[Rfam]
RNA: Enterobacteria sRNA STnc130
Organism: Enterobacteriaceae bacterium strain FGI 57
RNA sequence: UAUAGCGAGAUUUUUAUUUUUUAGUUUUAUAUGCUGCGGGUUACUUCGAAGGGAGUAUUUCUCUUUUGAAUGGUUAAGGUAUUGCUCAGUAUCAAUGAUGGGCAUAAAAAAAGCGCCCGCAGGCGCUUUUUACAUAAG
Numbered sequence: 001u002a003u004a005g006c007g008a009g010a011u012u013u014u015u016a017u018u019u020u021u022u023a024g025u026u027u028u029a030u031a032u033g034c035u036g037c038g039g040g041u042u043a044c045u046u047c048g049a050a051g052g053g054a055g056u057a058u059u060u061c062u063c064u065u066u067u068g069a070a071u072g073g074u075u076a077a078g079g080u081a082u083u084g085c086u087c088a089g090u091a092u093c094a095a096u097g098a099u100g101g102g103c104a105u106a107a108a109a110a111a112a113g114c115g116c117c118c119g120c121a122g123g124c125g126c127u128u129u130u131u132a133c134a135u136a137a138g
Stems, first nucleotide, its partner, number of pairs: 110129008